About this RNA:
A member of the RNA family "t44 RNA" from Pleionea mediterranea, 102 nucleotides long. The organism belongs to Pleionea, within Bacteria. The match comes from Rfam's covariance-model search (64 bits). Rfam's curators write: This family consists of a number of bacterial RNA genes of between 135 and 170 bases in length. The t44 gene has been identified in several species of enteric bacteria but homologs have also been identified in Pseudomonas and Coxiella species. The t44 gene is found between the map and rpsB genes in all species in the full alignment apart from Shigella flexneri. The function of this RNA is unknown. The family's RNA type in Rfam is small RNA.
[Rfam]
RNA sequence: CAGUCGGAUAAACUAAAACACACGCAGGUCGACACAUAAGUUUGGGUGCUGGUAAACCGGGAGGUCUCGCUGGUUGACUUAUGGGAUUUGCGGAGGUUAAAC
Numbered sequence: 001c002a003g004u005c006g007g008a009u010a011a012a013c014u015a016a017a018a019c020a021c022a023c024g025c026a027g028g029u030c031g032a033c034a035c036a037u038a039a040g041u042u043u044g045g046g047u048g049c050u051g052g053u054a055a056a057c058c059g060g061g062a063g064g065u066c067u068c069g070c071u072g073g074u075u076g077a078c079u080u081a082u083g084g085g086a087u088u089u090g091c092g093g094a095g096g097u098u099a100a101a102c
Base pairs, nucleotide, nucleotide: 023092024091025090026089027088028087029086030085035083036082037081038080039079040078041077042076048074049073050072051071052070